[Rfam]
RNA sequence: AGGCAAGGUGCGCGGGACAAUCUGUGGUCGUCAAUGCGACGGCAACCCCUGAGCGGGCGGGAUCCUCAGACCCGGACUUGCCGGCCUG
Numbered sequence: 001a002g003g004c005a006a007g008g009u010g011c012g013c014g015g016g017a018c019a020a021u022c023u024g025u026g027g028u029c030g031u032c033a034a035u036g037c038g039a040c041g042g043c044a045a046c047c048c049c050u051g052a053g054c055g056g057g058c059g060g061g062a063u064c065c066u067c068a069g070a071c072c073c074g075g076a077c078u079u080g081c082c083g084g085c086c087u088g
Base pairs, nucleotide, nucleotide: 002082003081004080005079006078007077011075013074014073015072016071021070022069023068024067026065027043028042029041030040031039032038046057047056048055
Dot-bracket structure: .((((((...(.((((....((((.(((((((.....))))))..(((......))).......).))))))))).))))))......
Notes: The family of this 88-nucleotide sequence is "DUF3800-VII RNA". The base pairs follow the family's consensus structure, which is taken from published work. It is one of the family's seed sequences.